[Rfam]
RNA: Group II catalytic intron D1-D4-3
RNA sequence: GCUAACGCUAGGGUCUGAAGGAAGCCAUAGGAAGUUAGAGGUACACAACUAACCGUAACUUGUUUCGGCGGUGUUGGUGGGUAAGCGUCCAAAAUAGCGCGAAGCCCGAUACUUAGUCAGACCAACAUUGUGAUUGAGGGUGGCAUUUCUAACAGGGAGUCAGU
Numbered sequence: 001g002c003u004a005a006c007g008c009u010a011g012g013g014u015c016u017g018a019a020g021g022a023a024g025c026c027a028u029a030g031g032a033a034g035u036u037a038g039a040g041g042u043a044c045a046c047a048a049c050u051a052a053c054c055g056u057a058a059c060u061u062g063u064u065u066c067g068g069c070g071g072u073g074u075u076g077g078u079g080g081g082u083a084a085g086c087g088u089c090c091a092a093a094a095u096a097g098c099g100c101g102a103a104g105c106c107c108g109a110u111a112c113u114u115a116g117u118c119a120g121a122c123c124a125a126c127a128u129u130g131u132g133a134u135u136g137a138g139g140g141u142g143g144c145a146u147u148u149c150u151a152a153c154a155g156g157g158a159g160u161c162a163g164u
Stems, first nucleotide, its partner, number of pairs: 001008002027164002031160001034153006040144001042142003059139003068131003072127007079107004085100004